The family of this 75-nucleotide RNA sequence from Hymenochirus boettgeri is "mir-17 microRNA precursor family".
The family has 234 seed sequences and 4,687 matches in Rfam 15.1.
Rfam links the family to the GO terms RISC complex and miRNA-mediated post-transcriptional gene silencing.

RNA sequence: UUUCAUUUAUUAAGUGCUCAACAUGCAGGUACACUGCAUGUUGUGUACUGCAUGUUGAGCACUUAAUAAAUGAAA
Numbered sequence: 001u002u003u004c005a006u007u008u009a010u011u012a013a014g015u016g017c018u019c020a021a022c023a024u025g026c027a028g029g030u031a032c033a034c035u036g037c038a039u040g041u042u043g044u045g046u047a048c049u050g051c052a053u054g055u056u057g058a059g060c061a062c063u064u065a066a067u068a069a070a071u072g073a074a075a
Stems, first nucleotide, its partner, number of pairs: 004072004009067018028049005

A search with the family's covariance model found it, with a score of 51 bits. The family's consensus secondary structure was predicted with RNAalifold. The source organism's lineage runs through Eukaryota, Deuterostomia, Gnathostomata, Pipinae and Hymenochirus.